[Rfam]
RNA sequence: UGGGAGGCUGAUGCGCAACUAGAGCUAAAACUGCUCUAAUUGUCACACUGUUCUCUCUAUAGUAAAAUUGCUUUCUGAUGACUGGGACAAAUUGAGGGAAAUUGUAACAAUAUAUAACAGCCUUCU
Numbered sequence: 001u002g003g004g005a006g007g008c009u010g011a012u013g014c015g016c017a018a019c020u021a022g023a024g025c026u027a028a029a030a031c032u033g034c035u036c037u038a039a040u041u042g043u044c045a046c047a048c049u050g051u052u053c054u055c056u057c058u059a060u061a062g063u064a065a066a067a068u069u070g071c072u073u074u075c076u077g078a079u080g081a082c083u084g085g086g087a088c089a090a091a092u093u094g095a096g097g098g099a100a101a102u103u104g105u106a107a108c109a110a111u112a113u114a115u116a117a118c119a120g121c122c123u124u125c126u
Stems, first nucleotide, its partner, number of pairs: 002057006015043004022036004068120003072116001074114001083109002087105004